Overview:
Rfam assigns this 61-nucleotide RNA sequence from Pristionchus pacificus to the family "mir-8364 microRNA precursor family". Taxonomically the source falls in Pristionchus (Eukaryota, Eumetazoa, Nematoda, Diplogasteromorpha).
RNA sequence: UCUUCAUUCCUCACACUAUCCCGCCGAUCAGAUCGGCGAGAGAGUGUGCGAAAUGAAGAGA
Dot-bracket structure: (((((((..(.((((((.((.(...............).)).)))))).)..)))))))..